This 173-nucleotide sequence from Butyrivibrio sp. CAG:318 belongs to the Rfam family "Lysine riboswitch aptamer".

RNA sequence: ACAUUAAGUAGAGGUCGCACUGUAUAUUAGUAAUUUAUGUGAUAUGUCAGGCAUAGAUGAUCAUGAAUGAAAGGCAGCAGUGCCGAAGCGUCACAGAUCCUGAGGCUGUGGCCGCUGGGAAUAUGAUGAAGAGUCAUAUUACUGUCAUCACAGGAUGGAGAGCUACUAAAGUA
Number, nucleotide and partner (000 for none) at each position: 001a000002c000003a000004u000005u000006a000007a167008g166009u165010a164011g163012a000013g000014g000015u000016c000017g083018c082019a081020c080021u079022g078023u077024a000025u000026a000027u000028u000029a000030g000031u000032a000033a068034u067035u066036u065037a064038u063039g062040u000041g000042a000043u000044a000045u000046g000047u000048c000049a000050g000051g000052c000053a000054u000055a000056g000057a000058u000059g000060a000061u000062c039063a038064u037065g036066a035067a034068u033069g000070a000071a000072a000073g000074g000075c000076a000077g023078c022079a021080g020081u019082g018083c017084c000085g000086a000087a116088g115089c114090g112091u111092c110093a109094c108095a107096g106097a000098u000099c000100c000101u000102g000103a000104g000105g000106c096107u095108g094109u093110g092111g091112c090113c000114g089115c088116u087117g143118g142119g000120a140121a139122u138123a137124u136125g135126a134127u133128g000129a000130a000131g000132a000133g127134u126135c125136a124137u123138a122139u121140u120141a000142c118143u117144g000145u158146c157147a156148u155149c154150a000151c000152a000153g000154g149155a148156u147157g146158g145159a000160g000161a000162g000163c011164u010165a009166c008167u007168a000169a000170a000171g000172u000173a000
The base pairs follow the family's consensus structure, which is taken from published work.